About this RNA: This 312-nucleotide sequence from Capsicum baccatum belongs to the Rfam family "Plant signal recognition particle RNA". Pairs were carried over by alignment from the consensus structure, which is taken from published work. By type it is a non-coding RNA gene. The family is grouped with related families in Rfam's "SRP clan". The match comes from Rfam's covariance-model search (212 bits).
Nucleotides: 312
Stems, first nucleotide, its partner, number of pairs: 001040003004023007029036002044311002047308001049306005056299002058296003061292003065288002068286003074280003078271004083266002087262001089260001091259001097257008106245002110242004115236009125166003128161003132157008141148002167172001174226005183219001186216002192203003
Number, partner (000 for none) and nucleotide at each position: 001040g002039c003038u004023g005022a006021g007020c008019u009018c010017a011000g012000u013000a014000a015000u016000g017010u018009g019008g020007g021006c022005u023004u024000g025000u026000a027000a028000c029036c030035c031000a032000a033000a034000u035030g036029g037000a038003g039002g040001c041000a042000u043000u044311a045310a046000u047308g048000c049306g050305g051304u052303g053302g054000a055000a056299u057298g058296c059295u060294g061292g062291g063290c064000u065288g066287u067000c068286c069285c070284a071000g072000a073000u074280g075279g076278u077000u078271g079270g080269g081268c082000a083266u084265g085000a086000c087262g088000a089260g090000c091259c092000a093000g094000u095000u096000u097257c098256u099255g100254g101253c102252c103251u104250g105000c106245c107244c108000u109000a110242u111241c112240c113239a114000a115236g116235c117234a118233c119232a120231g121230a122229g123228u124000u125166g126165g127164a128161u129160c130159a131000c132157g133156g134155g135154g136153c137152c138151u139150g140000a141148u142147c143000g144000a145000a146000a147142g148141a149000a150139u151138g152137g153136g154135c155134u156133c157132c158000u159130u160129g161128a162000u163000a164127u165126u166125c167172c168000u169000a170000a171000a172167g173000c174226g175225g176224g177223g178222u179000g180000u181000a182000c183219u184000g185000a186216g187215u188000g189000a190000g191000g192203c193202u194201g195000g196000u197000u198000u199000u200000a201194c202193a203192g204000a205000g206000c207000a208000a209000c210000c211000a212000g213000c214000a215187a216186c217000a218000a219183a220000c221000a222178g223177c224176u225175c226174u227000c228123g229122c230121u231120c232119u233118g234117u235116g236115c237000a238000g239113u240112g241111g242110a243000a244107g245106g246000a247000c248000a249000a250104c251103a252102g253101g254100c255099c256098g257097g258000a259091g260089c261000c262087u263000u264000a265084c266083a267000a268081g269080u270079c271078c272000a273000g274000u275000a276000g277000u278076g279075c280074c281000u282000g283000a284070u285069g286068g287066g288065u289000u290063g291062c292061u293000c294060c295059a296058g297000u298057u299056a300000g301000a302053c303052c304051a305050c306049c307000a308047c309000u310045u311044u312000u
Taxonomically the source falls in Capsicum (Eukaryota, Tracheophyta, Euphyllophyta, Pentapetalae).